The record is a 98-nucleotide sequence from Psychromicrobium silvestre, which matches "ZMP/ZTP riboswitch aptamer (pfl RNA motif)" in Rfam.
Pairs were carried over by alignment from the consensus structure, which is taken from published work.
Lineage of the source: Bacteria > Actinomycetota > Actinomycetes > Micrococcales > Psychromicrobium.

RNA sequence: UGAGGAGGUCGCGACUGGCGUAAGGUGGUCCACCACCGGGGAGCGACACGGGGGCAACCCCACACGCAGACCAUGGAUCGAACGCCUGGGACCGGGGU
Numbered sequence: 001u002g003a004g005g006a007g008g009u010c011g012c013g014a015c016u017g018g019c020g021u022a023a024g025g026u027g028g029u030c031c032a033c034c035a036c037c038g039g040g041g042a043g044c045g046a047c048a049c050g051g052g053g054g055c056a057a058c059c060c061c062a063c064a065c066g067c068a069g070a071c072c073a074u075g076g077a078u079c080g081a082a083c084g085c086c087u088g089g090g091a092c093c094g095g096g097g098u
Stems, first nucleotide, its partner, number of pairs: 008047005015040002017086005025036004075093002078090002